[Rfam]
RNA sequence: UGGCUGGGACGACCCAGUUACGCAUCUGUUUUUCGGGGACGGCCCCG
Numbered sequence: 001u002g003g004c005u006g007g008g009a010c011g012a013c014c015c016a017g018u019u020a021c022g023c024a025u026c027u028g029u030u031u032u033u034c035g036g037g038g039a040c041g042g043c044c045c046c047g
Stems, first nucleotide, its partner, number of pairs: 001020008034047005
RNA: Guanidine-II riboswitch aptamer (mini-ykkC)
Organism: Yersinia pseudotuberculosis